[Rfam]
RNA sequence: UCGCCUUAAACUAAUGAGUAAGGAAAAUAACGAUCUGGGUGACGCCAGAUCCUGUGGCUAGUGUCACUAUCAAUUUUUUCCGGGGUAACAGGCUGCCCCCGGGUGACCCGCUUACUUCUGCGGGAUGCCCGUGUUGUAGCGGCCUCCGCU
Numbered sequence: 001u002c003g004c005c006u007u008a009a010a011c012u013a014a015u016g017a018g019u020a021a022g023g024a025a026a027a028u029a030a031c032g033a034u035c036u037g038g039g040u041g042a043c044g045c046c047a048g049a050u051c052c053u054g055u056g057g058c059u060a061g062u063g064u065c066a067c068u069a070u071c072a073a074u075u076u077u078u079u080c081c082g083g084g085g086u087a088a089c090a091g092g093c094u095g096c097c098c099c100c101g102g103g104u105g106a107c108c109c110g111c112u113u114a115c116u117u118c119u120g121c122g123g124g125a126u127g128c129c130c131g132u133g134u135u136g137u138a139g140c141g142g143c144c145u146c147c148g149c150u
Stems, first nucleotide, its partner, number of pairs: 004023005032051007054067004082150002085147001090145007099133001101130005107124005
A member of the RNA family "U12 minor spliceosomal RNA" from Stylophora pistillata, 150 nucleotides long.
On this family, see Otake et al., Mol Cell 2002: "The divergent U12-type spliceosome is required for pre-mRNA splicing and is essential for development in Drosophila".
Lineage of the source: Eukaryota > Cnidaria > Anthozoa > Scleractinia > Stylophora.